[Rfam]
RNA sequence: AUUUCACUUUAACAUGGAGGUACUUUCUGUGUGUUUAAAAAGCAAGUGCUUCUGUGUUUUAGUGGAAC
Numbered sequence: 001a002u003u004u005c006a007c008u009u010u011a012a013c014a015u016g017g018a019g020g021u022a023c024u025u026u027c028u029g030u031g032u033g034u035u036u037a038a039a040a041a042g043c044a045a046g047u048g049c050u051u052c053u054g055u056g057u058u059u060u061a062g063u064g065g066a067a068c
Stems, first nucleotide, its partner, number of pairs: 002067002005064004011058015027042002
Record summary: mir-302 microRNA precursor family: a 68-nucleotide sequence from Microcaecilia unicolor. On this family, see Suh et al., Dev Biol 2004: "Human embryonic stem cells express a unique set of microRNAs". The organism belongs to Microcaecilia, within Eukaryota. Rfam 15.1 lists 2,090 matches to the family in 516 species. A search with the family's covariance model found it, with a score of 66 bits. The family's consensus secondary structure was predicted with RNAalifold.